RNA sequence: GGGGAUGUCUUGGCUUCGACAGGAAUGGUAGAAUUUCAUCGGCAGUAGUUUGGCAGACUAUAAUGCUUCUAGGUUUGAAGAAACGCAAACAAAAAAGAAAAACAAGACAAAAUUGCAAUGCCAGCAUUUAUGAUGAACAAUCAAUUUGCUGGGGCAAUGUUAGCCGCUUAGUACUCGCUGUUAGAGUUUUGGCUAAUCGUUAGUGUUAUUAAUUGUAGAUUAUUAAUGAGCUAAUGUAGAAGAAGUUUAAUCUAAUCGGGAUUAUAAUUGAUAAUGCUAUAAUCUUUAAAAAGAAUUAUCUAGUUAUAAGGUUAGUUGUUUUAUCCUAUUAUCUUAUAAUGAACCAAAACUGAUAAAACUAAACUGUAGAAGAUGAUUGGAAACUGUUUGUGGACGCGGGUUCAAUUCCCGCCAUCUCCACCA
Dot-bracket structure: (((((((............((.(((((((.......((((..((((...((((.(...........).)))).......................................................................................(((((.((.........)).))))).............((((((.......(((..[[[[[[)))......))))))............]]]]]]...(((((((.....[[[[[.....))))))).........]]]]]..(((((((((((((..[[[[..[.)))..))))))))))...........]...]]]]...)))).....)))).......))))))).))...(((((.......))))))))))))....
transfer-messenger RNA: a 423-nucleotide sequence from Spiroplasma eriocheiris.
A reference for the family is Williams (2002), "The tmRNA Website: invasion by an intron", Nucleic Acids Res.
Rfam's curators write: Bacterial tmRNA, also known as 10Sa RNA or SsrA, is named for its dual tRNA and mRNA-like properties. Its role is to liberate the mRNA from a stalled ribosome. To accomplish this part of the tmRNA is used as a reading frame that ends in a translation stop signal.
By type it is a non-coding RNA gene.
Gene Ontology term of the family: RNA catabolic process.
The base pairs follow the family's consensus structure, which is taken from published work.